[Rfam]
Ribosomal protein L10 leader: a 135-nucleotide sequence from Neomoorella thermoacetica.
The family's RNA type in Rfam is cis-regulatory leader.
Rfam links the family to the GO term regulation of gene expression.
RNA sequence: UAACUAAAUAUUGGUUUGCCGUAGACAGCAGGUGCCAUCGGCUUAAAUUUGCCUGCCGAGGUAAAAAAGUUAACCGUCUAAACGGUUAGUCAGCUAUUGCCCUCGCCUGUCUGCGGGGGCUUUAACUUUUUAAGC
Numbered sequence: 001u002a003a004c005u006a007a008a009u010a011u012u013g014g015u016u017u018g019c020c021g022u023a024g025a026c027a028g029c030a031g032g033u034g035c036c037a038u039c040g041g042c043u044u045a046a047a048u049u050u051g052c053c054u055g056c057c058g059a060g061g062u063a064a065a066a067a068a069g070u071u072a073a074c075c076g077u078c079u080a081a082a083c084g085g086u087u088a089g090u091c092a093g094c095u096a097u098u099g100c101c102c103u104c105g106c107c108u109g110u111c112u113g114c115g116g117g118g119g120c121u122u123u124a125a126c127u128u129u130u131u132a133a134g135c
Stems, first nucleotide, its partner, number of pairs: 028056006034042003099120008